[Rfam]
RNA sequence: GUCUCCAGUGUCUGCUGGAUUGAUAAUCAGUGGCUCUCUCUAGCUGGCUCAGUCCAGCAGGCAUAGGAG
Numbered sequence: 001g002u003c004u005c006c007a008g009u010g011u012c013u014g015c016u017g018g019a020u021u022g023a024u025a026a027u028c029a030g031u032g033g034c035u036c037u038c039u040c041u042a043g044c045u046g047g048c049u050c051a052g053u054c055c056a057g058c059a060g061g062c063a064u065a066g067g068a069g
Base pairs, nucleotide, nucleotide: 003069004068005067006066008064009063011061012060013059015057016056017055018054019053020052021051022050023049027047028046029045030044031043

The record is a 69-nucleotide sequence from Megalops atlanticus, which matches "mir-24 microRNA precursor family" in Rfam. Rfam 15.1 lists 1,372 matches to the family in 601 species. This family represents the microRNA (miRNA) mir-24 family. miRNAs are transcribed as ~70nt precursors (modelled here) and subsequently processed by the Dicer enzyme to give a ~22nt product. In this case the mature sequence comes from the 3' arm of the precursor. The extents of the hairpin precursors are not generally known and are estimated based on hairpin prediction.